NoRC associated RNA, pRNA: an 85-nucleotide RNA sequence from Nyctereutes procyonoides. Rfam classes the family as a non-coding RNA gene. NCBI's taxonomy places the organism under Eukaryota, Eumetazoa, Dipnotetrapodomorpha, Eutheria, Nyctereutes.
RNA sequence: CCGUGGGGGCAGAUUUUGGGGACAGUGGCCGUGUCACGGUCCCGGGAGGUCGCGGUGACCUGUGGCUGGUCCCCGCCAGCAGGCG
Numbered sequence: 001c002c003g004u005g006g007g008g009g010c011a012g013a014u015u016u017u018g019g020g021g022a023c024a025g026u027g028g029c030c031g032u033g034u035c036a037c038g039g040u041c042c043c044g045g046g047a048g049g050u051c052g053c054g055g056u057g058a059c060c061u062g063u064g065g066c067u068g069g070u071c072c073c074c075g076c077c078a079g080c081a082g083g084c085g
Base pairs, nucleotide, nucleotide: 004082006080008077009076019074020073021072027066029064030062031061033059034058035057036056037055

Record summary: Gene Ontology term of the family: chromatin remodeling.